This 82-nucleotide RNA sequence from Pelusios castaneus belongs to the Rfam family "Small nucleolar RNA SNORD60".
The family has 22 seed sequences and 825 matches in Rfam 15.1.
For this family Rfam cites "Purified box C/D snoRNPs are able to reproduce site-specific 2'-O-methylation of target RNA in vitro" (Galardi et al., Mol Cell Biol, 2002).
Rfam links the family to the GO terms RNA processing and nucleolus.
The family's consensus secondary structure was predicted with PFOLD.
Clan: SNORD60 clan.
[Rfam]
RNA sequence: AGCCUAUGAUGAAGUUCAGUUUCUGACACCUCGUAUGAGGGCUGCCUGAGCAGUACUUGAUUCCACUUCCUGCCUGAGGCUG
Numbered sequence: 001a002g003c004c005u006a007u008g009a010u011g012a013a014g015u016u017c018a019g020u021u022u023c024u025g026a027c028a029c030c031u032c033g034u035a036u037g038a039g040g041g042c043u044g045c046c047u048g049a050g051c052a053g054u055a056c057u058u059g060a061u062u063c064c065a066c067u068u069c070c071u072g073c074c075u076g077a078g079g080c081u082g
Stems, first nucleotide, its partner, number of pairs: 001081004041054005